Overview
The family of this 89-nucleotide RNA sequence from Marchantia polymorpha is "Small nucleolar RNA Z103". The match comes from Rfam's covariance-model search (66 bits). On this family, see Chen et al., Nucleic Acids Res 2003: "The high diversity of snoRNAs in plants: identification and comparative study of 120 snoRNA genes from Oryza sativa". Pairs were carried over by alignment from the consensus structure, which was predicted with PFOLD. By type it is a C/D-box small nucleolar RNA.
[Rfam]
RNA sequence: AUGGAAAUGAGGAUCCUUUCCCCAAAUGAACGACGCUGAUUCGGACUGUGCGACAAGCUCUUCGGAGCCAAGCCAGAAUACUGAUCCGU
Numbered sequence: 001a002u003g004g005a006a007a008u009g010a011g012g013a014u015c016c017u018u019u020c021c022c023c024a025a026a027u028g029a030a031c032g033a034c035g036c037u038g039a040u041u042c043g044g045a046c047u048g049u050g051c052g053a054c055a056a057g058c059u060c061u062u063c064g065g066a067g068c069c070a071a072g073c074c075a076g077a078a079u080a081c082u083g084a085u086c087c088g089u
Stems, first nucleotide, its partner, number of pairs: 001089005